Rfam assigns this 271-nucleotide RNA sequence from Cnephaeus nilssonii to the family "Mason-Pfizer monkey virus packaging signal". The base pairs follow the family's consensus structure, which was predicted with PFOLD. Rfam classes the family as a cis-regulatory element. Lineage of the source: Eukaryota > Opisthokonta > Metazoa > Amniota > Cnephaeus. A search with the family's covariance model found it, with a score of 119 bits. This family represents a group of sequences that are related to the Mason-Pfizer monkey virus (MPMV) packaging signal. The packaging signal is located in the 5' UTR and is required for specific RNA encapsidation.

RNA sequence: UGGCGCCCAAGGUGUGGGUCCGAGCACGGGGGACUCCGUGAGGAACGCUGUUCGGAGAGCCGGCAAAAAAGAAACUGAAAGGAGGAGGAGAUUAAACGGGAACCUGCGUUUCUUCUGAACCUCGGUAAGUGAACAGCGAUUAUGGGACAAGAAAUAAGUCAACAUGAAAUGUUCGUAGAGGGACAAAAACAGGCUUUAAAGGCACGAGGGGUAAAGGUUUCUGUAAAACAAUUGUUAAAAUAUUUUGAGUAUGUUAAGGAUGUUUGUCCGU
Numbered sequence: 001u002g003g004c005g006c007c008c009a010a011g012g013u014g015u016g017g018g019u020c021c022g023a024g025c026a027c028g029g030g031g032g033a034c035u036c037c038g039u040g041a042g043g044a045a046c047g048c049u050g051u052u053c054g055g056a057g058a059g060c061c062g063g064c065a066a067a068a069a070a071g072a073a074a075c076u077g078a079a080a081g082g083a084g085g086a087g088g089a090g091a092u093u094a095a096a097c098g099g100g101a102a103c104c105u106g107c108g109u110u111u112c113u114u115c116u117g118a119a120c121c122u123c124g125g126u127a128a129g130u131g132a133a134c135a136g137c138g139a140u141u142a143u144g145g146g147a148c149a150a151g152a153a154a155u156a157a158g159u160c161a162a163c164a165u166g167a168a169a170u171g172u173u174c175g176u177a178g179a180g181g182g183a184c185a186a187a188a189a190c191a192g193g194c195u196u197u198a199a200a201g202g203c204a205c206g207a208g209g210g211g212u213a214a215a216g217g218u219u220u221c222u223g224u225a226a227a228a229c230a231a232u233u234g235u236u237a238a239a240a241u242a243u244u245u246u247g248a249g250u251a252u253g254u255u256a257a258g259g260a261u262g263u264u265u266g267u268c269c270g271u
Stems, first nucleotide, its partner, number of pairs: 006032003012027003037047003081123002085120001089116003094111005130149002134146001137144002155198003158194003205247005211241002215233002218230001220228001256271001258269004